Shown here is a 148-nucleotide sequence from Eutrema salsugineum, a member of the family "Small nucleolar RNA snoR2/U65". The organism belongs to Eutrema, within Eukaryota. Rfam 15.1 lists 908 matches to the family in 230 species. On this family, see Shaw et al., J Cell Sci 1998: "Localization and processing from a polycistronic precursor of novel snoRNAs in maize". The base pairs follow the family's consensus structure, which was predicted with WAR. Rfam classes the family as an H/ACA-box small nucleolar RNA.
RNA sequence: UGUCCGAUGCCACGUCGAUGAUAGCUUCUGGGCUUUGAUCUUUGAUGCUACAUUGGACAUAAACAAAUGUUUGUGUUUCGCUUUCUGAUAGGAACCUGUGGAUCUUGAUCAUUCUACGAUCUACGGAGCCAUUUCGGCGAUUACAUUU
Numbered sequence: 001u002g003u004c005c006g007a008u009g010c011c012a013c014g015u016c017g018a019u020g021a022u023a024g025c026u027u028c029u030g031g032g033c034u035u036u037g038a039u040c041u042u043u044g045a046u047g048c049u050a051c052a053u054u055g056g057a058c059a060u061a062a063a064c065a066a067a068u069g070u071u072u073g074u075g076u077u078u079c080g081c082u083u084u085c086u087g088a089u090a091g092g093a094a095c096c097u098g099u100g101g102a103u104c105u106u107g108a109u110c111a112u113u114c115u116a117c118g119a120u121c122u123a124c125g126g127a128g129c130c131a132u133u134u135c136g137g138c139g140a141u142u143a144c145a146u147u148u
Stems, first nucleotide, its partner, number of pairs: 002058008013047006020040003024033003078140005091130002096126003100122005